[Rfam]
Nucleotides: 341
Stems, first nucleotide, its partner, number of pairs: 001337009011327001012307007020036007041325003045322005050212004057244002062208005067081005082096001083094004097203002102201002104197002119142002121138007150168006170192001171190006178183001216264003224256006235249001237247001271290008
Number, partner (000 for none) and nucleotide at each position: 001337u002336g003335a004334g005333u006332u007331g008330a009329g010000u011327a012307g013306a014305u015304g016303a017302u018301c019000g020036c021035g022034u023033u024032c025031c026030a027000a028000u029000u030026u031025g032024g033023a034022a035021u036020g037000a038000g039000g040000a041325a042324a043323g044000u045322c046321c047320g048319g049318a050212c051211u052210c053209c054000g055000c056000a057244g058243g059000g060000c061000a062208g063207g064206a065205u066204g067081c068080u069079g070078g071077g072000u073000a074000a075000u076000c077071c078070c079069c080068a081067g082096g083094a084093g085092u086091g087000g088000c089000a090000a091086c092085g093084c094083u095000a096082u097203g098202g099000a100000a101000a102201g103200u104197g105196c106000a107000a108000c109000a110000g111000a112000a113000a114000g115000u116000a117000g118000a119142c120141u121138a122137c123136a124135a125134c126133g127132g128000u129000a130000c131000u132127c133126c134125g135124u136123u137122g138121u139000a140000c141120a142119g143000g144000u145000g146000a147000a148000a149000c150168g151167g152166u153165g154164c155163g156000g157000u158000a159000a160000a161000a162000g163155c164154g165153c166152a167151c168150c169000a170192g171190a172189c173188c174187a175186u176185a177000a178183g179000g180000u181000g182000a183178c184000c185176u186175a187174u188173g189172g190171u191000g192170c193000u194000u195000g196105g197104u198000a199000a200103a201102c202098c203097c204066c205065a206064u207063c208062u209053g210052g211051a212050g213000c214000a215000a216264g217263g218262u219000a220000a221000a222000a223000c224256g225255g226254a227253g228252a229251c230000u231000u232000u233000u234000a235249a236000a237247g238000g239000u240000g241000u242000g243058c244057c245000c246000g247237u248000c249235u250000c251229g252228u253227c254226u255225c256224c257000g258000g259000g260000u261000a262218a263217c264216c265000g266000c267000u268000u269000g270000a271290g272289g273288u274287u275286a276285a277284u278283g279000g280000c281000a282000a283278c284277a285276u286275u287274a288273a289272u290271c291000c292000c293000a294000g295000a296000u297000g298000a299000a300000u301018g302017a303016u304015c305014a306013u307012c308000a309000u310000a311000u312000a313000c314000a315000g316000a317000a318049u319048c320047c321046g322045g323043c324042u325041u326000a327011u328000u329009c330008u331007c332006a333005a334004c335003u336002c337001a338000a339000g340000c341000u
A member of the RNA family "Bacterial RNase P class A" from a Candidatus Poribacteria bacterium, 341 nucleotides long. Rfam classes the family as a ribozyme.